[Rfam]
RNA sequence: CGCCUUUGCAAAGCGAUCCGCCAUCCCUAUAUUCCCGGUGCCGGCGCAAGUCGGCUAUGGCGAUAAAUGGGUGACGUAAUAAACCUAUCGGACCCGGGGGCGGUACCCGGCGCCUCCACCCGAGCCCGCGGCCCGCAUCCACAUGCGGAUCAGACGCGGGCUCCGGCGGGGGCGAAACAGGAUCGACGAGGGUGUAAAGGUCUUUCUUUCGCUCGGCAUGGUACCGCCGUUAUCGGGCUAAAAUUGUAGUUGCCAAUGACAACUAUGCUCCGGUCGCUGUCGCCGCGUAAUGCGGUGCCGGUAACCGAAAUCAAGUCCUGAGGGGUAGCACUUUCAGGCGGGGUCCGGAGGCACCUGGCAACAGAAGCCUCCACU
Number, nucleotide and partner (000 for none) at each position: 001c000002g000003c000004c000005u000006u000007u000008g000009c000010a000011a000012a000013g000014c000015g000016a000017u000018c000019c000020g000021c000022c000023a000024u000025c000026c000027c000028u000029a000030u000031a000032u000033u000034c000035c000036c000037g000038g000039u000040g055041c054042c053043g052044g051045c000046g000047c000048a000049a000050g000051u044052c043053g042054g041055c040056u000057a000058u000059g213060g212061c211062g210063a209064u000065a000066a000067a000068u000069g206070g205071g204072u000073g202074a201075c200076g000077u000078a000079a000080u000081a000082a000083a000084c192085c191086u190087a000088u189089c188090g187091g000092a000093c000094c110095c109096g108097g107098g106099g000100g000101c000102g000103g000104u000105a000106c098107c097108c096109g095110g094111c174112g173113c172114c171115u170116c169117c168118a000119c000120c000121c000122g000123a000124g000125c000126c000127c000128g000129c000130g000131g000132c000133c000134c000135g000136c000137a000138u000139c000140c000141a000142c000143a000144u000145g000146c000147g000148g000149a000150u000151c000152a000153g000154a000155c000156g000157c000158g000159g000160g000161c000162u000163c000164c000165g000166g000167c000168g117169g116170g115171g114172g113173c112174g111175a000176a000177a000178c000179a000180g000181g000182a000183u000184c000185g000186a000187c090188g089189a088190g086191g085192g084193u000194g000195u000196a000197a000198a000199g000200g075201u074202c073203u000204u071205u070206c069207u000208u000209u063210c062211g061212c060213u059214c229215g228216g227217c226218a000219u240220g239221g238222u000223a000224c236225c235226g217227c216228c215229g214230u000231u000232a000233u000234c000235g225236g224237g000238c221239u220240a219241a000242a000243a000244u000245u000246g000247u000248a000249g000250u000251u000252g000253c000254c000255a000256a000257u000258g000259a000260c000261a000262a000263c000264u000265a000266u000267g000268c000269u000270c000271c000272g000273g000274u000275c000276g000277c000278u000279g000280u000281c000282g000283c000284c000285g000286c000287g000288u000289a000290a000291u000292g000293c000294g000295g000296u000297g000298c000299c000300g000301g000302u000303a000304a000305c000306c000307g000308a000309a000310a000311u000312c000313a000314a000315g000316u000317c000318c000319u000320g000321a000322g000323g000324g000325g000326u000327a000328g000329c000330a000331c000332u000333u000334u000335c000336a000337g000338g000339c000340g000341g356342g355343g354344u353345c000346c000347g372348g371349a370350g369351g368352c367353a344354c343355c342356u341357g000358g000359c000360a000361a000362c000363a000364g000365a000366a000367g352368c351369c350370u349371c348372c347373a000374c000375u000
Alphaproteobacteria transfer-messenger RNA: a 375-nucleotide RNA from Methylobrevis pamukkalensis.